[Rfam]
RNA sequence: AAACCCCACGCGGGAGAGUCCGAGCGGUCCACCGGCCGACUCGGCGCCGAAGGAGCAAAUCCUCCCCGGAACCUCUCAGGCAAACGGACCGCGUGGUCGAG
Numbered sequence: 001a002a003a004c005c006c007c008a009c010g011c012g013g014g015a016g017a018g019u020c021c022g023a024g025c026g027g028u029c030c031a032c033c034g035g036c037c038g039a040c041u042c043g044g045c046g047c048c049g050a051a052g053g054a055g056c057a058a059a060u061c062c063u064c065c066c067c068g069g070a071a072c073c074u075c076u077c078a079g080g081c082a083a084a085c086g087g088a089c090c091g092c093g094u095g096g097u098c099g100a101g
Base pairs, nucleotide, nucleotide: 006096007095008094009093010092011091012090013089020044021043022042023041046081047080048079049077050076053075054074055073060068

Shown here is a 101-nucleotide sequence from Actinokineospora iranica, a member of the family "Glycine riboswitch aptamer".
The match comes from Rfam's covariance-model search (68 bits).
Rfam describes the family as follows. This family represents the bacterial glycine riboswitch.
Taxonomically the source falls in Actinokineospora (Bacteria, Actinomycetes, Pseudonocardiales, Pseudonocardiaceae).
Pairs were carried over by alignment from the consensus structure.